The record is a 54-nucleotide RNA sequence from Larimichthys crocea, which matches "UnaL2 LINE 3' element" in Rfam. The eel long interspersed element (LINE) UnaL2 and its partner short interspersed element (SINE) share a conserved 3' tail containing a stem-loop that is critical for their retrotransposition. Presumably, the first step of retrotransposition is the recognition of their 3' tails by UnaL2-encoded reverse transcriptase. The solution structure of a 17-nucleotide RNA derived from the 3' tail of UnaL2 was determined by NMR. The family's consensus secondary structure is taken from published work. The family's RNA type in Rfam is cis-regulatory element.
[Rfam]
Nucleotides: 054
Base pairs, nucleotide, nucleotide: 013043014041015040016039021035022034023033024032025031
Number, partner (000 for none) and nucleotide at each position: 001000u002000g003000u004000u005000c006000c007000c008000u009000u010000c011000u012000c013043u014041g015040u016039a017000a018000g019000u020000a021035g022034c023033u024032u025031u026000g027000g028000a029000u030000a031025a032024a033023a034022g035021c036000g037000u038000c039016u040015g041014c042000u043013a044000a045000a046000u047000g048000a049000c050000u051000a052000a053000a054000u